[Rfam]
RNA sequence: UAUUCAGAAACCUGGCACGCAAUAUGCUUUGUUCGAUCCAACAAUUCAUCGGGCGUAACCCUCAACGGCGAGGGGCGCGCUCCCCGAGCGAUUCGGGAAUCGGACAAAGGCGUCCUGCUGGCAACGGCGGGACGCC
Numbered sequence: 001u002a003u004u005c006a007g008a009a010a011c012c013u014g015g016c017a018c019g020c021a022a023u024a025u026g027c028u029u030u031g032u033u034c035g036a037u038c039c040a041a042c043a044a045u046u047c048a049u050c051g052g053g054c055g056u057a058a059c060c061c062u063c064a065a066c067g068g069c070g071a072g073g074g075g076c077g078c079g080c081u082c083c084c085c086g087a088g089c090g091a092u093u094c095g096g097g098a099a100u101c102g103g104a105c106a107a108a109g110g111c112g113u114c115c116u117g118c119u120g121g122c123a124a125c126g127g128c129g130g131g132a133c134g135c136c
Stems, first nucleotide, its partner, number of pairs: 013106002015027003053080004059074002062071002083097004109136007117128004
A member of the RNA family "Pseudomonas sRNA P11" from Pseudomonas oryzae, 136 nucleotides long.
The organism belongs to Pseudomonas, within Bacteria.
The match comes from Rfam's covariance-model search (84 bits).
A reference for the family is Livny et al. (2006), "Identification of 17 Pseudomonas aeruginosa sRNAs and prediction of sRNA-encoding genes in 10 diverse pathogens using the bioinformatic tool sRNAPredict2", Nucleic Acids Res.
This small RNA (sRNA) was computationally identified in the genome of the opportunistic pathogen Pseudomonas aeruginosa and its expression verified by northern blot analysis. P11 is located between a putative threonine protein kinase and putative nitrate reductase and appears to be conserved in several Pseudomonas species. P11 has a predicted Rho independent terminator at the 3'end but the function of P11 is unknown.